[Rfam]
RNA sequence: GUAGUCGUUGUAAACAUCCUACACUCAGCUGUAAUCUGCACAUGAGGCUGGGAGGAGGGUGUUUGCUGUGACUGA
Numbered sequence: 001g002u003a004g005u006c007g008u009u010g011u012a013a014a015c016a017u018c019c020u021a022c023a024c025u026c027a028g029c030u031g032u033a034a035u036c037u038g039c040a041c042a043u044g045a046g047g048c049u050g051g052g053a054g055g056a057g058g059g060u061g062u063u064u065g066c067u068g069u070g071a072c073u074g075a
Stems, first nucleotide, its partner, number of pairs: 002074005008068001010066011022054001024052007